Shown here is a 76-nucleotide sequence from Crocodylus porosus, a member of the family "Mammalian CPEB3 ribozyme". The family's consensus secondary structure is taken from published work. The literature on the family includes a 2006 paper in Science by Salehi-Ashtiani et al., "A genomewide search for ribozymes reveals an HDV-like sequence in the human CPEB3 gene". The mammalian CPEB3 ribozyme is a self cleaving RNA located in the second intron of the CPEB3 gene which belongs to a family of genes regulating messenger RNA polyadenylation. NCBI's taxonomy places the organism under Eukaryota, Deuterostomia, Craniata, Sauropsida, Crocodylus.

RNA sequence: CUUGCAAGUUCAAGGCCAUAGGAGAAGUGUUUAUAAAGGGGCCAUGUCAGAUUCCAACAAAUCUGCAAAUUCUGCU
Number, nucleotide and partner (000 for none) at each position: 001c000002u000003u000004g000005c000006a000007a000008g000009u000010u000011c000012a000013a000014g043015g042016c041017c040018a000019u000020a076021g075022g000023a073024g072025a071026a070027g000028u038029g000030u000031u000032u000033a000034u000035a000036a000037a000038g028039g000040g017041g016042c015043c014044a000045u000046g000047u000048c065049a064050g063051a062052u061053u060054c000055c000056a000057a000058c000059a000060a053061a052062u051063c050064u049065g048066c000067a000068a000069a000070u026071u025072c024073u023074g000075c021076u020